A member of the RNA family "Small Cajal body-specific RNA 2" from Microtus ochrogaster, 418 nucleotides long.
The family has 20 seed sequences and 612 matches in Rfam 15.1.
It scores 352 bits against the family's covariance model.

RNA sequence: CCUCGCGAGUGGGAGCGUGGCCGGGGUCCUGGACGGAGGCUGUUUAGUGUGGUGUGGUGUUUCGUGCAUGGCGCGUGUGGGCUGAGUGCGAGUGUGGAUGUGGGAGUGUGUGUGCGUGCCUGGGGUGUGCGAGGCGAGUGUGUCUGCCCCGCGCCCCUCCCCCGCCUACACCUUGAUCUUAUUUGAUCGGGUCGUGACCCCCGCCCCGCCGGGCCGUCCCGAAAUGAAAAGCAGCCCUCCUGCGAAGCCCCCUCCGCGGGGCGCUGUGCAGCGAGGCCCCCCUGGGCGGUGGCAGUGCCGAGGUUCCCGAGGUCUCGGGAUCGGUCCUGCGGGCCCGGCGCUCAGAAGUGAUGAAUUGAUCAGAUAGACGAGGCCGGGUCUGUCCCGGCCGCUGAUUACCGAGGCGAUUCUGAUCUGA
Numbered sequence: 001c002c003u004c005g006c007g008a009g010u011g012g013g014a015g016c017g018u019g020g021c022c023g024g025g026g027u028c029c030u031g032g033a034c035g036g037a038g039g040c041u042g043u044u045u046a047g048u049g050u051g052g053u054g055u056g057g058u059g060u061u062u063c064g065u066g067c068a069u070g071g072c073g074c075g076u077g078u079g080g081g082c083u084g085a086g087u088g089c090g091a092g093u094g095u096g097g098a099u100g101u102g103g104g105a106g107u108g109u110g111u112g113u114g115c116g117u118g119c120c121u122g123g124g125g126u127g128u129g130c131g132a133g134g135c136g137a138g139u140g141u142g143u144c145u146g147c148c149c150c151g152c153g154c155c156c157c158u159c160c161c162c163c164g165c166c167u168a169c170a171c172c173u174u175g176a177u178c179u180u181a182u183u184u185g186a187u188c189g190g191g192u193c194g195u196g197a198c199c200c201c202c203g204c205c206c207c208g209c210c211g212g213g214c215c216g217u218c219c220c221g222a223a224a225u226g227a228a229a230a231g232c233a234g235c236c237c238u239c240c241u242g243c244g245a246a247g248c249c250c251c252c253u254c255c256g257c258g259g260g261g262c263g264c265u266g267u268g269c270a271g272c273g274a275g276g277c278c279c280c281c282c283u284g285g286g287c288g289g290u291g292g293c294a295g296u297g298c299c300g301a302g303g304u305u306c307c308c309g310a311g312g313u314c315u316c317g318g319g320a321u322c323g324g325u326c327c328u329g330c331g332g333g334c335c336c337g338g339c340g341c342u343c344a345g346a347a348g349u350g351a352u353g354a355a356u357u358g359a360u361c362a363g364a365u366a367g368a369c370g371a372g373g374c375c376g377g378g379u380c381u382g383u384c385c386c387g388g389c390c391g392c393u394g395a396u397u398a399c400c401g402a403g404g405c406g407a408u409u410c411u412g413a414u415c416u417g418a
Stems, first nucleotide, its partner, number of pairs: 056155005061077001063075004094107001099104001110147003115142005121136002182230003187222004193216002196214001199213003203209002254312002257309005263304003269300001271298003276293003280289002321338004325333003343417004353410006372390004377385002